[Rfam]
The family of this 158-nucleotide RNA sequence from Oscillospiraceae bacterium Marseille-Q3528 is "Clostridiales-1 RNA".
It scores 88 bits against the family's covariance model.
The family's RNA type in Rfam is small RNA.
Lineage of the source: Bacteria > Bacillati > Bacillota > Clostridia > Oscillospiraceae.
Pairs were carried over by alignment from the consensus structure, which is taken from published work.
RNA sequence: CGAUGCUAGGGUCAAAAGGUCUAAGCCCACAUGAGCUUGCUCAUAAGUGGGUGAAAGACCUUGGGACCCGCCCCCGAUAUGAGCAUAAAAGCGGGAUGAUAAUCCCACGAUAUGCGAAUAGCGAGGUGCUAUGUGCCGGUGGCACAUGUUUAGCACCG
Numbered sequence: 001c002g003a004u005g006c007u008a009g010g011g012u013c014a015a016a017a018g019g020u021c022u023a024a025g026c027c028c029a030c031a032u033g034a035g036c037u038u039g040c041u042c043a044u045a046a047g048u049g050g051g052u053g054a055a056a057g058a059c060c061u062u063g064g065g066a067c068c069c070g071c072c073c074c075c076g077a078u079a080u081g082a083g084c085a086u087a088a089a090a091g092c093g094g095g096a097u098g099a100u101a102a103u104c105c106c107a108c109g110a111u112a113u114g115c116g117a118a119u120a121g122c123g124a125g126g127u128g129c130u131a132u133g134u135g136c137c138g139g140u141g142g143c144a145c146a147u148g149u150u151u152a153g154c155a156c157c158g
Base pairs, nucleotide, nucleotide: 001158002157004155005154006153007152010068011067012066013065016062017061018060019059020058021057022056026051027050028049029048030047031044032043033042034041035040073125075123076122078120079119080118083115084114085113086112091108093106094105095104096103097102131147132146133145134144135143136142